The family of this 102-nucleotide RNA from Clostridium thermopalmarium is "Purine riboswitch aptamer". NCBI's taxonomy places the organism under Bacteria, Bacillati, Bacillota, Clostridium, Clostridium thermopalmarium. The family's consensus secondary structure is taken from published work.

RNA sequence: AAUAAAUAAUAUUCGCAUACUCGUAUAUGCUGGAAAAUAUGGUUCCAGUGUUUCUACCAGACAGCCGCAAACUGUUUGACUACGGGUGUUUAUAUGAUAAUU
Numbered sequence: 001a002a003u004a005a006a007u008a009a010u011a012u013u014c015g016c017a018u019a020c021u022c023g024u025a026u027a028u029g030c031u032g033g034a035a036a037a038u039a040u041g042g043u044u045c046c047a048g049u050g051u052u053u054c055u056a057c058c059a060g061a062c063a064g065c066c067g068c069a070a071a072c073u074g075u076u077u078g079a080c081u082a083c084g085g086g087u088g089u090u091u092a093u094a095u096g097a098u099a100a101u102u
Stems, first nucleotide, its partner, number of pairs: 018088008029049007058078007

Description: A search with the family's covariance model found it, with a score of 88 bits.